Rfam assigns this 93-nucleotide RNA sequence from Clostridium sp. FS41 to the family "ZMP/ZTP riboswitch aptamer (pfl RNA motif)". Taxonomically the source falls in Clostridium (Bacteria, Bacillati, Bacillota, Clostridiaceae).
[Rfam]
RNA sequence: AAUAUGGCGUGUGACUGGCGGAUAAGUGGAUGAACCACAGGGAGCACGCAGUAUGGAUUUUGUUGGAUUGAGCCGACCGCCUGGGCACGUGUG
Numbered sequence: 001a002a003u004a005u006g007g008c009g010u011g012u013g014a015c016u017g018g019c020g021g022a023u024a025a026g027u028g029g030a031u032g033a034a035c036c037a038c039a040g041g042g043a044g045c046a047c048g049c050a051g052u053a054u055g056g057a058u059u060u061u062g063u064u065g066g067a068u069u070g071a072g073c074c075g076a077c078c079g080c081c082u083g084g085g086c087a088c089g090u091g092u093g
Base pairs, nucleotide, nucleotide: 003053004052005051007049008048009047010046011045012044015041016040017081018080019079020078021077026038027037028036029035070088072086073085074084